Shown here is a 331-nucleotide RNA from Sciurus vulgaris, a member of the family "7SK RNA". The family's RNA type in Rfam is non-coding RNA gene. The family has 45 seed sequences and 49,373 matches in Rfam 15.1. It scores 335 bits against the family's covariance model. The family's consensus secondary structure is taken from published work.

RNA sequence: GGAUGUGAGGGUGAUCUGGCUGCGACAUCUGUCACCCCAUUGAUCGCCAGGGCUGAUUCGGCUCAUCUGGCUGGCUAGGCUGGUGUCUCUUUCCUCCCUCACCGCUCCAUGUGUGUCCCCCCUGAAGCUGCGUGCUCGGUCGAAGAGGACGACCUUCCCCCAUAGAGGAGGACCCAUCUUCGGUCAAGGGUAUACGAGUAGCUGUGCUCCCCUGCUAGACCCUCCAAACAAGCUCUCGAGGUCCAUCUGUAGGAGAACAUAGGGUAGUCAAGCUUCCAAGACUCCAGACACAUCCAAAUGAGGCUCUGCACAUGGCAGUCUGCCUUUCUAA
Numbered sequence: 001g002g003a004u005g006u007g008a009g010g011g012u013g014a015u016c017u018g019g020c021u022g023c024g025a026c027a028u029c030u031g032u033c034a035c036c037c038c039a040u041u042g043a044u045c046g047c048c049a050g051g052g053c054u055g056a057u058u059c060g061g062c063u064c065a066u067c068u069g070g071c072u073g074g075c076u077a078g079g080c081u082g083g084u085g086u087c088u089c090u091u092u093c094c095u096c097c098c099u100c101a102c103c104g105c106u107c108c109a110u111g112u113g114u115g116u117c118c119c120c121c122c123u124g125a126a127g128c129u130g131c132g133u134g135c136u137c138g139g140u141c142g143a144a145g146a147g148g149a150c151g152a153c154c155u156u157c158c159c160c161c162a163u164a165g166a167g168g169a170g171g172a173c174c175c176a177u178c179u180u181c182g183g184u185c186a187a188g189g190g191u192a193u194a195c196g197a198g199u200a201g202c203u204g205u206g207c208u209c210c211c212c213u214g215c216u217a218g219a220c221c222c223u224c225c226a227a228a229c230a231a232g233c234u235c236u237c238g239a240g241g242u243c244c245a246u247c248u249g250u251a252g253g254a255g256a257a258c259a260u261a262g263g264g265u266a267g268u269c270a271a272g273c274u275u276c277c278a279a280g281a282c283u284c285c286a287g288a289c290a291c292a293u294c295c296a297a298a299u300g301a302g303g304c305u306c307u308g309c310a311c312a313u314g315g316c317a318g319u320c321u322g323c324c325u326u327u328c329u330a331a
Base pairs, nucleotide, nucleotide: 001108002107003106005102006101007100008099009098010097011096013093014092018090019089024087025086026085027084028083029082031080032079033078035074036073037070038069039068042067043066044065046062047061048060116171117170118168119167121165122139123138124137125136127135128134140162142160147158148157149156201273202272203271207267208266210264211263212262213261214260222255223254224253225252228250229249230248232246298329300326301325302324303323304322306318307317308316309315